[Rfam]
RNA sequence: UGCUCUACCAGUGAUGGUCAAAUGAAAAUGUCUGAACAUAUGAGUUCUAUGUGAUAUCAGCAUUUUAUCUGAGGUAAGAGCA
Number, nucleotide and partner (000 for none) at each position: 001u000002g081003c080004u079005c000006u076007a075008c074009c073010a000011g000012u000013g000014a000015u000016g000017g000018u000019c000020a000021a000022a000023u000024g000025a000026a000027a000028a000029u000030g000031u000032c000033u000034g000035a000036a000037c000038a000039u000040a000041u000042g000043a000044g000045u000046u000047c000048u000049a000050u000051g000052u000053g000054a000055u000056a000057u000058c000059a000060g000061c000062a000063u000064u000065u000066u000067a000068u000069c000070u000071g000072a000073g009074g008075u007076a006077a000078g000079a004080g003081c002082a000
The record is an 82-nucleotide RNA from Salarias fasciatus, which matches "Small nucleolar RNA SNORD72" in Rfam. Rfam describes the family as follows. snoRNA HBII-240 belongs to the CD family of snoRNAs. It is the human orthologue of the mouse MBII-240 and is predicted to guide 2'O-ribose methylation of the large 28S rRNA at residue U4590. The literature on the family includes a 2001 paper in EMBO J by Huttenhofer et al., "RNomics: an experimental approach that identifies 201 candidates for novel, small, non-messenger RNAs in mouse". Rfam 15.1 lists 726 matches to the family in 499 species. NCBI's taxonomy places the organism under Eukaryota, Metazoa, Osteoglossocephalai, Percomorphaceae, Salarias.